[Rfam]
RNA sequence: GGGAGUAGCCGCUCUGCGAUUUUACCGACAGAGGUUUGCGUCAACAUACUUGGCAGUCAAUACACCGACACCCGCCAUGGCGCAAACAGCCGUAAGGCUUGGCAAGACUCAUGAUUUUCCGGUGUGUAGCGGGGGCUGCAACAGCGGAAAAUCAUGUCGUCUGUGCAGCCCCCGCUGGAUC
Numbered sequence: 001g002g003g004a005g006u007a008g009c010c011g012c013u014c015u016g017c018g019a020u021u022u023u024a025c026c027g028a029c030a031g032a033g034g035u036u037u038g039c040g041u042c043a044a045c046a047u048a049c050u051u052g053g054c055a056g057u058c059a060a061u062a063c064a065c066c067g068a069c070a071c072c073c074g075c076c077a078u079g080g081c082g083c084a085a086a087c088a089g090c091c092g093u094a095a096g097g098c099u100u101g102g103c104a105a106g107a108c109u110c111a112u113g114a115u116u117u118u119c120c121g122g123u124g125u126g127u128a129g130c131g132g133g134g135g136c137u138g139c140a141a142c143a144g145c146g147g148a149a150a151a152u153c154a155u156g157u158c159g160u161c162u163g164u165g166c167a168g169c170c171c172c173c174g175c176u177g178g179a180u181c
Stems, first nucleotide, its partner, number of pairs: 013032003034087010051077004094180001
The family of this 181-nucleotide RNA is "Manganese Mn2+ riboswitch aptamer (yybP-ykoY)". This RNA was originally discovered in E. coli during a large scale screen and was named SraF. The family was later found to exist upstream of related families of protein genes in many bacteria, including the the yybP and ykoK genes in B. subtilis. The specific functions of these proteins are unknown, but this structured RNA element may be involved in their genetic regulation as a riboswitch. The base pairs follow the family's consensus structure. A search with the family's covariance model found it, with a score of 58 bits.